[Rfam]
RNA sequence: AGACGGGGCUUUUGCCCCUCCUCAGGCUGAACGGUUCUAAGAAAUUCCCAGAUCUUCACAGUAUAAUUUUAUCAAGCUCUCAGG
Numbered sequence: 001a002g003a004c005g006g007g008g009c010u011u012u013u014g015c016c017c018c019u020c021c022u023c024a025g026g027c028u029g030a031a032c033g034g035u036u037c038u039a040a041g042a043a044a045u046u047c048c049c050a051g052a053u054c055u056u057c058a059c060a061g062u063a064u065a066a067u068u069u070u071a072u073c074a075a076g077c078u079c080u081c082a083g084g
Stems, first nucleotide, its partner, number of pairs: 002020002005018005024056003027051003033045001035043003
Description
The record is an 84-nucleotide sequence from Legionella antarctica, which matches "Legionella RNA 69" in Rfam. Pairs were carried over by alignment from the consensus structure, which was predicted with RNAfold. NCBI's taxonomy places the organism under Bacteria, Pseudomonadati, Pseudomonadota, Gammaproteobacteria, Legionella. It scores 44 bits against the family's covariance model. The literature on the family includes a 2011 paper in PLoS One by Weissenmayer et al., "Sequencing illustrates the transcriptional response of Legionella pneumophila during infection and identifies seventy novel small non-coding RNAs". From the family's description: Identified by strand specific sequencing of the transcriptional response during broth growth and during infection inside the host. Infection specific expression. Rfam classes the family as a small RNA.